Annotation: A member of the RNA family "Alphaproteobacteria transfer-messenger RNA" from Paramagnetospirillum magnetotacticum, 322 nucleotides long. The base pairs follow the family's consensus structure, which is taken from published work. NCBI's taxonomy places the organism under Bacteria, Pseudomonadati, Pseudomonadota, Alphaproteobacteria, Paramagnetospirillum. It is annotated as a non-coding RNA gene. Its family is annotated with RNA catabolic process in the Gene Ontology.
[Rfam]
Nucleotides: 322
Stems, first nucleotide, its partner, number of pairs: 040053005057199005067192004072187002082177003086174003092108005109159007200215003205226003210222002285301004291319006
Number, partner (000 for none) and nucleotide at each position: 001000g002000g003000c004000u005000g006000g007000c008000g009000c010000u011000u012000c013000g014000u015000u016000g017000c018000g019000g020000c021000c022000c023000g024000c025000u026000u027000u028000a029000u030000a031000g032000u033000g034000g035000c036000g037000g038000u039000u040053g041052c042051c043050g044049g045000g046000c047000a048000a049044c050043c051042g052041g053040c054000u055000a056000u057199g058198a059197c060196g061195c062000u063000a064000a065000a066000c067192g068191c069190c070189a071000c072187a073186c074000g075000g076000a077000a078000u079000a080000g081000a082177c083176g084175u085000u086174a087173c088172g089000g090000a091000c092108c093107c094106g095105g096104g097000g098000g099000c100000g101000g102000u103000a104096c105095c106094c107093g108092g109159c110158g111157c112156c113155u114154c115153c116000a117000c118000c119000a120000a121000a122000u123000u124000u125000c126000c127000c128000g129000g130000c131000c132000c133000a134000c135000g136000a137000c138000g139000c140000g141000g142000g143000c144000c145000g146000g147000a148000a149000c150000c151000u152000u153115g154114g155113g156112g157111g158110c159109g160000a161000a162000a163000u164000a165000g166000g167000a168000u169000c170000g171000a172088c173087g174086u175084g176083c177082g178000c179000a180000g181000u182000a183000a184000a185000g186073g187072u188000c189070u190069g191068g192067u193000u194000u195061g196060c197059g198058u199057u200215c201214g202213g203000c204000a205226u206225g207224a208000u209000a210222c211221c212000a213202c214201c215200g216000u217000u218000a219000u220000c221211g222210g223000g224207u225206c226205a227000a228000u229000c230000c231000u232000a233000a234000c235000a236000a237000g238000u239000g240000c241000c242000a243000a244000c245000g246000a247000c248000a249000a250000c251000g252000u253000u254000g255000a256000a257000c258000u259000u260000g261000c262000c263000g264000c265000u266000g267000c268000g269000g270000c271000u272000u273000a274000g275000u276000c277000c278000g279000u280000a281000a282000g283000c284000g285301c286300g287299g288298u289000c290000c291319g292318g293317g294316g295315g296314g297000a298288a299287c300286c301285g302000g303000g304000c305000a306000a307000c308000a309000g310000a311000a312000c313000u314296c315295c316294c317293c318292c319291c320000a321000c322000u